[Rfam]
RNA sequence: GUAGAAGUUCCAUAUACAAAUGGAUAAAACUUAGGUAUUAGUGUAUAUUAGUUUUUGAAAAUAAAGAUAAAGGGGCAAUAAUAAACUUCUUGAUAUAAUAAGAAGUUUGCUAUUGCUCCUUUA
Dot-bracket structure: ........(((((......)))))............................................((((((((((((..(((.(((((........))))).)))..)))))))))))).
A member of the RNA family "Plastid-psbA-1 3UTR RNA", 123 nucleotides long. Rfam's curators put it in the seed alignment. Pairs were carried over by alignment from the consensus structure, which was predicted with LocARNA. Clan: Plastid-psbA 3UTR RNA clan. From the family's description: Plastid psbA-1 is a non-coding RNA (ncRNA) present in plastids. It was identified in inverted repeat sequences in the 3 prime untranslate region (3UTR) of photosystem II quinone-binding protein (psbA). On this family, see Richter et al., Plant Commun 2023: "Retrograde signaling in plants: A critical review focusing on the GUN pathway and beyond".